[Rfam]
RNA sequence: AUCGGUCCUCGGUAGUGGCUGUCGGAAGUGCAAGGGCACAUCCGGCCGCUUCGAUCGAAGGCCGUC
Numbered sequence: 001a002u003c004g005g006u007c008c009u010c011g012g013u014a015g016u017g018g019c020u021g022u023c024g025g026a027a028g029u030g031c032a033a034g035g036g037c038a039c040a041u042c043c044g045g046c047c048g049c050u051u052c053g054a055u056c057g058a059a060g061g062c063c064g065u066c
Stems, first nucleotide, its partner, number of pairs: 003064005009058005017050003021046006028039002